[Rfam]
RNA sequence: UCACUCUCGUCUUUCUGCAAUUGUCCGAGAAAAUCUUUCGCCUUUUACUAAAGAUUUCCGUGCAGGAAGACAAACAUGAGUUUUUUGAUUUUUGGAAUCCCCUUGAAAAAGGGGAAU
Numbered sequence: 001u002c003a004c005u006c007u008c009g010u011c012u013u014u015c016u017g018c019a020a021u022u023g024u025c026c027g028a029g030a031a032a033a034u035c036u037u038u039c040g041c042c043u044u045u046u047a048c049u050a051a052a053g054a055u056u057u058c059c060g061u062g063c064a065g066g067a068a069g070a071c072a073a074a075c076a077u078g079a080g081u082u083u084u085u086u087g088a089u090u091u092u093u094g095g096a097a098u099c100c101c102c103u104u105g106a107a108a109a110a111g112g113g114g115a116a117u
Base pairs, nucleotide, nucleotide: 003081004080005079006078009071010070011069012068013067014066015065016064017063018062019061031057032056033055034054035053036052037051038050096117098116100114101113102112103111
The record is a 117-nucleotide RNA sequence from Diploscapter pachys, which matches "U5 spliceosomal RNA" in Rfam. The base pairs follow the family's consensus structure, which is taken from published work. Rfam classes the family as a spliceosomal small nuclear RNA. The match comes from Rfam's covariance-model search (82 bits).